[Rfam]
RNA sequence: GGCAGAAAAAGGCAAACCUGCAGCGAUGCAGGGGCGCAAAGCCCAAGGGUCUGCUCAGAAGGCAGACAGCCGGGUUGCCUGC
Number, nucleotide and partner (000 for none) at each position: 001g000002g000003c000004a000005g000006a000007a000008a000009a000010a000011g000012g037013c036014a000015a000016a000017c032018c031019u030020g029021c028022a027023g000024c000025g000026a000027u022028g021029c020030a019031g018032g017033g000034g000035c000036g013037c012038a000039a000040a076041g075042c074043c073044c000045a000046a000047g071048g070049g067050u066051c065052u064053g063054c062055u061056c000057a000058g000059a000060a000061g055062g054063c053064a052065g051066a050067c049068a000069g000070c048071c047072g000073g043074g042075u041076u040077g000078c000079c000080u000081g000082c000